Shown here is a 67-nucleotide RNA sequence from Pipistrellus kuhlii, a member of the family "mir-9256 microRNA precursor family". Rfam 15.1 lists 31,772 matches to the family in 5 species. Its family is annotated with miRNA-mediated post-transcriptional gene silencing and RISC complex in the Gene Ontology. Pairs were carried over by alignment from the consensus structure, which was predicted with RNAalifold.
[Rfam]
RNA sequence: AUAUACACUGAGUGGCCAGCUUAUUAUGUAUUCAGAGAACAUAAUAAUUUGGCCACUCAGUGUGUAU
Numbered sequence: 001a002u003a004u005a006c007a008c009u010g011a012g013u014g015g016c017c018a019g020c021u022u023a024u025u026a027u028g029u030a031u032u033c034a035g036a037g038a039a040c041a042u043a044a045u046a047a048u049u050u051g052g053c054c055a056c057u058c059a060g061u062g063u064g065u066a067u
Stems, first nucleotide, its partner, number of pairs: 004064014019049001021047008
NCBI's taxonomy places the organism under Eukaryota, Craniata, Mammalia, Laurasiatheria, Pipistrellus.